[Rfam]
Shown here is a 78-nucleotide RNA from Caenorhabditis remanei, a member of the family "SmY spliceosomal RNA".
It is one of the family's seed sequences.
It is annotated as a spliceosomal small nuclear RNA.
For this family Rfam cites "A novel family of C. elegans snRNPs contains proteins associated with trans-splicing" (MacMorris et al., RNA, 2007).
Taxonomically the source falls in Caenorhabditis (Eukaryota, Nematoda, Rhabditidae, Peloderinae).
RNA sequence: UUUCUAACCAGAAAGACAGCAGGGCCUUACUAAAGACCCGUACUACAAUUUUUGCAGCCCUGUUCUUCGGAGCAGGGG
Number, nucleotide and partner (000 for none) at each position: 001u000002u000003u000004c000005u000006a000007a000008c000009c000010a000011g000012a000013a000014a000015g000016a000017c000018a000019g000020c000021a000022g039023g038024g037025c000026c035027u034028u033029a000030c000031u000032a000033a028034a027035g026036a000037c024038c023039c022040g000041u000042a000043c000044u000045a000046c000047a000048a000049u000050u000051u000052u000053u000054g000055c000056a000057g000058c077059c076060c075061u074062g073063u072064u071065c070066u000067u000068c000069g000070g065071a064072g063073c062074a061075g060076g059077g058078g000